[Rfam]
The record is a 102-nucleotide sequence from Bacillus sp. B1-b2, which matches "Purine riboswitch aptamer" in Rfam.
Taxonomically the source falls in Bacillus (Bacteria, Bacilli, Caryophanales, Bacillaceae).
RNA sequence: UACAAAAUAAUAAAUUAUACUCGUAUAAUAGCAGGGAUAUGGCCUGCGAGUUUCUACCAGAUAACCGUUAAUUGUCUGACUACGAGUAAGCGCAUAGAGCAA
Numbered sequence: 001u002a003c004a005a006a007a008u009a010a011u012a013a014a015u016u017a018u019a020c021u022c023g024u025a026u027a028a029u030a031g032c033a034g035g036g037a038u039a040u041g042g043c044c045u046g047c048g049a050g051u052u053u054c055u056a057c058c059a060g061a062u063a064a065c066c067g068u069u070a071a072u073u074g075u076c077u078g079a080c081u082a083c084g085a086g087u088a089a090g091c092g093c094a095u096a097g098a099g100c101a102a
Stems, first nucleotide, its partner, number of pairs: 018088008029049001031047005058078007
Dot-bracket structure: .................((((((((...(.(((((.......))))).)........(((((((.......)))))))..))))))))..............